[Rfam]
RNA sequence: GAUCCUCAGCCUUUCCCAGGGGUCUUUUAUCCCCAUGGAGGUCCCUGUCACAGCUUUGGGAUAAUGGGGAGGGGUCCCAGCCCUUCCCGGGGGGGUUCCCAACCCUUCUGGGGGGGAUCCCCAACC
Numbered sequence: 001g002a003u004c005c006u007c008a009g010c011c012u013u014u015c016c017c018a019g020g021g022g023u024c025u026u027u028u029a030u031c032c033c034c035a036u037g038g039a040g041g042u043c044c045c046u047g048u049c050a051c052a053g054c055u056u057u058g059g060g061a062u063a064a065u066g067g068g069g070a071g072g073g074g075u076c077c078c079a080g081c082c083c084u085u086c087c088c089g090g091g092g093g094g095g096u097u098c099c100c101a102a103c104c105c106u107u108c109u110g111g112g113g114g115g116g117a118u119c120c121c122c123a124a125c126c
Stems, first nucleotide, its partner, number of pairs: 003061004008056002011053001019046004023041005072122003085113006092107004
Small nucleolar RNA SNORA49: a 126-nucleotide RNA from Leiothrix lutea. Taxonomically the source falls in Leiothrix (Eukaryota, Dipnotetrapodomorpha, Amniota, Archelosauria). It is annotated as an H/ACA-box small nucleolar RNA. The family's consensus secondary structure was predicted with RNAalifold. The snoRNA ACA49 has no identified RNA target. NB genomic sequence 1-nt different from published.